A member of the RNA family "Small nucleolar RNA SNORA25" from Rhinolophus ferrumequinum, 125 nucleotides long. The base pairs follow the family's consensus structure, which was predicted with RNAfold. NCBI's taxonomy places the organism under Eukaryota, Bilateria, Vertebrata, Chiroptera, Rhinolophus. Rfam links the family to the GO terms RNA processing and nucleolus. Rfam's curators write: ACA25 is a member of the H/ACA class of snoRNA that guide the sites of modification of uridines to pseudouridines. It scores 107 bits against the family's covariance model.
[Rfam]
RNA sequence: AGAUAAUUUCAAAAAGAGCUUGUUGGACCAAAACCAGGGGCUCUUAAUGCUGUGACCAAAGAUUGAAGUUCUCCAUAGAAUGUAAGUCACUCAAUAGUGCUAUGUUUUCCUGAGGAGAUACAAAA
Numbered sequence: 001a002g003a004u005a006a007u008u009u010c011a012a013a014a015a016g017a018g019c020u021u022g023u024u025g026g027a028c029c030a031a032a033a034c035c036a037g038g039g040g041c042u043c044u045u046a047a048u049g050c051u052g053u054g055a056c057c058a059a060a061g062a063u064u065g066a067a068g069u070u071c072u073c074c075a076u077a078g079a080a081u082g083u084a085a086g087u088c089a090c091u092c093a094a095u096a097g098u099g100c101u102a103u104g105u106u107u108u109c110c111u112g113a114g115g116a117g118a119u120a121c122a123a124a125a
Stems, first nucleotide, its partner, number of pairs: 002057001004055001006053002014045008023037001026035001070118005077111002080108001085101002088099004